This 132-nucleotide RNA sequence from Anaeromonas frigoriresistens belongs to the Rfam family "c-di-AMP riboswitch aptamer (ydaO/yuaA leader)". This family represents a conserved RNA structure found upstream of the ydaO and yuaA genes in Bacillus subtilis and related genes in other bacteria.
[Rfam]
RNA sequence: AAGCCACACUUGCUGAAAUCUAUUUUUAUAGAUGCGGAGGAACCAACUAAGGGGUUAAUCCAAAUAUUUUGGUAGGGAACCUUCUAUCCCGAACCCGUCAGCUAACUUCGUAAGCAAUUAUAGGAAGGAGUG
Numbered sequence: 001a002a003g004c005c006a007c008a009c010u011u012g013c014u015g016a017a018a019u020c021u022a023u024u025u026u027u028a029u030a031g032a033u034g035c036g037g038a039g040g041a042a043c044c045a046a047c048u049a050a051g052g053g054g055u056u057a058a059u060c061c062a063a064a065u066a067u068u069u070u071g072g073u074a075g076g077g078a079a080c081c082u083u084c085u086a087u088c089c090c091g092a093a094c095c096c097g098u099c100a101g102c103u104a105a106c107u108u109c110g111u112a113a114g115c116a117a118u119u120a121u122a123g124g125a126a127g128g129a130g131u132g
Stems, first nucleotide, its partner, number of pairs: 011116004018033005034111006044051001052096003060072004075090004

Description:
Its family is annotated with regulation of gene expression and cyclic-di-AMP binding in the Gene Ontology.